[Rfam]
RNA sequence: GCUGGUGGCGCUGAUGACAUUUUUUUCCCCAUCAGAGCGGCAGUGUUGACUUCUCACUGUUAAAGCUAGGUCGUGUCUGAUGCACCAGU
Numbered sequence: 001g002c003u004g005g006u007g008g009c010g011c012u013g014a015u016g017a018c019a020u021u022u023u024u025u026u027c028c029c030c031a032u033c034a035g036a037g038c039g040g041c042a043g044u045g046u047u048g049a050c051u052u053c054u055c056a057c058u059g060u061u062a063a064a065g066c067u068a069g070g071u072c073g074u075g076u077c078u079g080a081u082g083c084a085c086c087a088g089u
Stems, first nucleotide, its partner, number of pairs: 001089007

Shown here is an 89-nucleotide sequence from Probosciger aterrimus, a member of the family "Small nucleolar SNORD12/SNORD106". Its family is annotated with nucleolus and RNA processing in the Gene Ontology. Its Rfam clan is "SNORD12 clan". By type it is a C/D-box small nucleolar RNA. A reference for the family is Vitali et al. (2003), "Identification of 13 novel human modification guide RNAs", Nucleic Acids Res.